[Rfam]
RNA sequence: GCAGGGCUGCACGAUGAGGCCUCCUCCCGCCCGUCUGACGCACUUCCCCGGUGUCAGACAGUCGCGGAGGGAGACCUGAUCGGGUCGCCCGGUACCU
Numbered sequence: 001g002c003a004g005g006g007c008u009g010c011a012c013g014a015u016g017a018g019g020c021c022u023c024c025u026c027c028c029g030c031c032c033g034u035c036u037g038a039c040g041c042a043c044u045u046c047c048c049c050g051g052u053g054u055c056a057g058a059c060a061g062u063c064g065c066g067g068a069g070g071g072a073g074a075c076c077u078g079a080u081c082g083g084g085u086c087g088c089c090c091g092g093u094a095c096c097u
Stems, first nucleotide, its partner, number of pairs: 010084001012082004018076002021073005027067004031061001033059009
Dot-bracket structure: .........(.((((..((.(((((.(((((.(((((((((.........))))))))).)..)))).))))).))..)))).).............

Record summary:
This 97-nucleotide sequence from Sanguibacter antarcticus belongs to the Rfam family "mraW RNA". A search with the family's covariance model found it, with a score of 58 bits. By type it is a cis-regulatory element.